[Rfam]
RNA sequence: UCAUGAACUUUGUACCGCGCGCAUCCCUUAGAUAGCUCCAAAAAGUCACAUAAUAU
Numbered sequence: 001u002c003a004u005g006a007a008c009u010u011u012g013u014a015c016c017g018c019g020c021g022c023a024u025c026c027c028u029u030a031g032a033u034a035g036c037u038c039c040a041a042a043a044a045g046u047c048a049c050a051u052a053a054u055a056u
Stems, first nucleotide, its partner, number of pairs: 019036002023033003
RNA: Plastid-ndhJ 3UTR RNA